[Rfam]
RNA sequence: GCACAAGGUAGAGGCCAACAACCCCCACCCAAGAAAACGGGCACCUAAUGGGGCCGGGGGAGAGCAGCCAGUGGUGCGACCGGCUACCGUGUAU
Numbered sequence: 001g002c003a004c005a006a007g008g009u010a011g012a013g014g015c016c017a018a019c020a021a022c023c024c025c026c027a028c029c030c031a032a033g034a035a036a037a038c039g040g041g042c043a044c045c046u047a048a049u050g051g052g053g054c055c056g057g058g059g060g061a062g063a064g065c066a067g068c069c070a071g072u073g074g075u076g077c078g079a080c081c082g083g084c085u086a087c088c089g090u091g092u093a094u
Base pairs, nucleotide, nucleotide: 001094003092004091005090007088008087009086010085011084013069014068015067023062025060026059028057029056039081040080041077042076043075044074045073
RNA: c-di-GMP-II-GAG riboswitch aptamer